Notes
Shown here is a 130-nucleotide RNA from Oryctolagus cuniculus, a member of the family "Small nucleolar RNA SNORA68". NCBI's taxonomy places the organism under Eukaryota, Dipnotetrapodomorpha, Mammalia, Boreoeutheria, Oryctolagus. The family has 26 seed sequences and 1,079 matches in Rfam 15.1. It is one of the family's seed sequences. A reference for the family is Ganot et al. (1997), "The family of box ACA small nucleolar RNAs is defined by an evolutionarily conserved secondary structure and ubiquitous sequence elements essential for RNA accumulation", Genes Dev. Rfam's curators write: U68 is a member of the H/ACA class of small nucleolar RNAs (snoRNAs) which act as guides in the the modification of uridines to pseudouridines. It is annotated as an H/ACA-box small nucleolar RNA.
RNA sequence: UGCCCAUACUAAACCCAAGAAUCACAGUUGUGUAGCAGUGAUUUAAACACAGGUGUGCACAGCAAGUGGAUCUCAUCGCCUUUGGGGCUGAGGCUGUGCCACUGGAAGUGAAUCUGGAAGUCUUACACCC
Numbered sequence: 001u002g003c004c005c006a007u008a009c010u011a012a013a014c015c016c017a018a019g020a021a022u023c024a025c026a027g028u029u030g031u032g033u034a035g036c037a038g039u040g041a042u043u044u045a046a047a048c049a050c051a052g053g054u055g056u057g058c059a060c061a062g063c064a065a066g067u068g069g070a071u072c073u074c075a076u077c078g079c080c081u082u083u084g085g086g087g088c089u090g091a092g093g094c095u096g097u098g099c100c101a102c103u104g105g106a107a108g109u110g111a112a113u114c115u116g117g118a119a120g121u122c123u124u125a126c127a128c129c130c
Stems, first nucleotide, its partner, number of pairs: 002058002005055003009052002020043006027036003068123004073118002080108004084102001086100003